A member of the RNA family "6C RNA" from marine actinobacterium PHSC20C1, 76 nucleotides long. The base pairs follow the family's consensus structure, which is taken from published work. Rfam's curators put it in the seed alignment. NCBI's taxonomy places the organism under Bacteria, Bacillati, Actinomycetota, Actinomycetes. It is annotated as a cis-regulatory element. Rfam links the family to the GO term sporulation.
[Rfam]
RNA sequence: CACGCGGCAAUUUUGAUUCCCCCCAAUCAAUUGCCGCGGUGGCGGUGCCUAUUCCCCCCAAUGGGCGCCGCCCCUC
Numbered sequence: 001c002a003c004g005c006g007g008c009a010a011u012u013u014u015g016a017u018u019c020c021c022c023c024c025a026a027u028c029a030a031u032u033g034c035c036g037c038g039g040u041g042g043c044g045g046u047g048c049c050u051a052u053u054c055c056c057c058c059c060a061a062u063g064g065g066c067g068c069c070g071c072c073c074c075u076c
Stems, first nucleotide, its partner, number of pairs: 002040002004037009041072012